[Rfam]
RNA: Small nucleolar RNA U109
Organism: Rhinopomastus cyanomelas
RNA sequence: CUGCAUGUUUAAAAAAAUAGAUAAUUCUGCUCUUUAUUCCUGUAAGGAGCAUGAAUACAUAUAAAACAUGCUAGAGAAAACAAGGAGUUUUCAGGGCUGCUAGUCUUACAGUAAAGACUGAGUAGUAGUAUAGGUCUCCUACAUCU
Numbered sequence: 001c002u003g004c005a006u007g008u009u010u011a012a013a014a015a016a017a018u019a020g021a022u023a024a025u026u027c028u029g030c031u032c033u034u035u036a037u038u039c040c041u042g043u044a045a046g047g048a049g050c051a052u053g054a055a056u057a058c059a060u061a062u063a064a065a066a067c068a069u070g071c072u073a074g075a076g077a078a079a080a081c082a083a084g085g086a087g088u089u090u091u092c093a094g095g096g097c098u099g100c101u102a103g104u105c106u107u108a109c110a111g112u113a114a115a116g117a118c119u120g121a122g123u124a125g126u127a128g129u130a131u132a133g134g135u136c137u138c139c140u141a142c143a144u145c146u
Stems, first nucleotide, its partner, number of pairs: 003071006026053001028051006084139004096126002100122001101120007